Background: The family of this 99-nucleotide RNA from Clostridium cavendishii is "Purine riboswitch aptamer". The source organism's lineage runs through Bacteria, Bacillati, Clostridia, Clostridiaceae and Clostridium cavendishii. A search with the family's covariance model found it, with a score of 64 bits. Pairs were carried over by alignment from the consensus structure, which is taken from published work.
[Rfam]
RNA sequence: UUAAUAUAAACGAAUAUCCCUCGUAUAUACCUUGAAUAUGGCAAGGAGUAUCUACCGGAAACCAUUAAAUUUCCGACUAUGAGUGGCUUUGAUGUGGUG
Numbered sequence: 001u002u003a004a005u006a007u008a009a010a011c012g013a014a015u016a017u018c019c020c021u022c023g024u025a026u027a028u029a030c031c032u033u034g035a036a037u038a039u040g041g042c043a044a045g046g047a048g049u050a051u052c053u054a055c056c057g058g059a060a061a062c063c064a065u066u067a068a069a070u071u072u073c074c075g076a077c078u079a080u081g082a083g084u085g086g087c088u089u090u091g092a093u094g095u096g097g098u099g
Stems, first nucleotide, its partner, number of pairs: 018085001020083006030046005056075006